[Rfam]
Overview
Rfam assigns this 241-nucleotide RNA from Streptococcus pneumoniae to the family "Streptococcus sRNA SpF66".
RNA sequence: GUUACCACGUACGUUCCUAUGGGUUCGAGUGAGAGGAGGUAACUAAUGAGCCUUAUCAUAGAGCUCGCUCUUUCUAUUAUAGCGGAGAUGUUAUAGCUGGAAUUAUCUUGUAUUUCGUCUGCAUGGCGAUAGAUAGUAAGGAGUAGACCGACUGACUAGCCUAUAAACACCCGUUAAAUCUAAGAUACGUCAAAAAAAAGCCCUACUACGGCCAUAGUUAGGGGCUUUUUGGUGUUCUAAU
Numbered sequence: 001g002u003u004a005c006c007a008c009g010u011a012c013g014u015u016c017c018u019a020u021g022g023g024u025u026c027g028a029g030u031g032a033g034a035g036g037a038g039g040u041a042a043c044u045a046a047u048g049a050g051c052c053u054u055a056u057c058a059u060a061g062a063g064c065u066c067g068c069u070c071u072u073u074c075u076a077u078u079a080u081a082g083c084g085g086a087g088a089u090g091u092u093a094u095a096g097c098u099g100g101a102a103u104u105a106u107c108u109u110g111u112a113u114u115u116c117g118u119c120u121g122c123a124u125g126g127c128g129a130u131a132g133a134u135a136g137u138a139a140g141g142a143g144u145a146g147a148c149c150g151a152c153u154g155a156c157u158a159g160c161c162u163a164u165a166a167a168c169a170c171c172c173g174u175u176a177a178a179u180c181u182a183a184g185a186u187a188c189g190u191c192a193a194a195a196a197a198a199a200g201c202c203c204u205a206c207u208a209c210g211g212c213c214a215u216a217g218u219u220a221g222g223g224g225c226u227u228u229u230u231g232g233u234g235u236u237c238u239a240a241u
Base pairs, nucleotide, nucleotide: 005036006035009030010029012027013026016023017022038181039180048066049065050064051063052061053060080176081175082174083173084172085171089169090168091167092166094121095120096119098117099116100115101114102113103112128160130158131157132156134154135153136152137151140149141148183238184237185236187235188234191231192230193229197228198227199226200225201224202223203222204221205218206217207216208215
Overview:
On this family, see Mann et al., PLoS Pathog 2012: "Control of virulence by small RNAs in Streptococcus pneumoniae". The sequence is in the family's curated seed alignment. Lineage of the source: Bacteria > Bacilli > Lactobacillales > Streptococcaceae > Streptococcus pneumoniae. It is annotated as a small RNA.